Rfam assigns this 79-nucleotide sequence from Anaerotignum lactatifermentans to the family "ZMP/ZTP riboswitch aptamer (pfl RNA motif)".
The match comes from Rfam's covariance-model search (54 bits).
[Rfam]
RNA sequence: GUAGAGUCAUAUGACUGACGGAAGUGGAGUAACCACAUGGAGUAUGACAGAUUUGAUGCCGACCGUCUGGGCGAUUACG
Number, nucleotide and partner (000 for none) at each position: 001g000002u000003a000004g000005a000006g048007u047008c046009a045010u044011a043012u042013g000014a000015c039016u000017g067018a066019c065020g064021g063022a000023a000024g036025u035026g034027g033028a000029g000030u000031a000032a000033c027034c026035a025036c024037a000038u000039g015040g000041a000042g012043u011044a010045u009046g008047a007048c006049a000050g000051a000052u000053u000054u000055g000056a000057u073058g072059c071060c070061g000062a000063c021064c020065g019066u018067c017068u000069g000070g060071g059072c058073g057074a000075u000076u000077a000078c000079g000
Its family is annotated with one-carbon metabolic process and regulation of purine nucleotide biosynthetic process in the Gene Ontology.